[Rfam]
The family of this 76-nucleotide RNA from Microcaecilia unicolor is "Mammalian CPEB3 ribozyme".
RNA sequence: AGCUCAGUUUUAGGGGUCAGAGCAGAAACACUCAUGUCACAGCCCCUGACAGAUCCUUCUGAAUCUGAAUUCUUCU
Numbered sequence: 001a002g003c004u005c006a007g008u009u010u011u012a013g014g015g016g017u018c019a020g021a022g023c024a025g026a027a028a029c030a031c032u033c034a035u036g037u038c039a040c041a042g043c044c045c046c047u048g049a050c051a052g053a054u055c056c057u058u059c060u061g062a063a064u065c066u067g068a069a070u071u072c073u074u075c076u
Stems, first nucleotide, its partner, number of pairs: 013046005021076002024073004050067005056061001